This 149-nucleotide sequence from Ventosimonas gracilis belongs to the Rfam family "PrrF RNA". PrrF RNA is a small RNA involved in iron homeostasis and is found exclusively in Pseudomonas species. Lineage of the source: Bacteria > Pseudomonadota > Pseudomonadales > Ventosimonadaceae > Ventosimonas. The match comes from Rfam's covariance-model search (105 bits). The literature on the family includes a 2004 paper in Proc Natl Acad Sci U S A by Wilderman et al., "Identification of tandem duplicate regulatory small RNAs in Pseudomonas aeruginosa involved in iron homeostasis".
[Rfam]
RNA sequence: UUGACUAUCAAAAUUGUCUUCUCUAAGAUUACAACCACUGGCUUCGCGGCCAGUGGAUAAACUGAAAACCGCAGCAGUGCAGCUUUCAGAUUAUCUCCUCAUCAGGCUAAUCACGGUUAUUGACCCACCUUUCGGUGGGUCUUUUUUUG
Numbered sequence: 001u002u003g004a005c006u007a008u009c010a011a012a013a014u015u016g017u018c019u020u021c022u023c024u025a026a027g028a029u030u031a032c033a034a035c036c037a038c039u040g041g042c043u044u045c046g047c048g049g050c051c052a053g054u055g056g057a058u059a060a061a062c063u064g065a066a067a068a069c070c071g072c073a074g075c076a077g078u079g080c081a082g083c084u085u086u087c088a089g090a091u092u093a094u095c096u097c098c099u100c101a102u103c104a105g106g107c108u109a110a111u112c113a114c115g116g117u118u119a120u121u122g123a124c125c126c127a128c129c130u131u132u133c134g135g136u137g138g139g140u141c142u143u144u145u146u147u148u149g
Stems, first nucleotide, its partner, number of pairs: 035056009062089006097106003122141008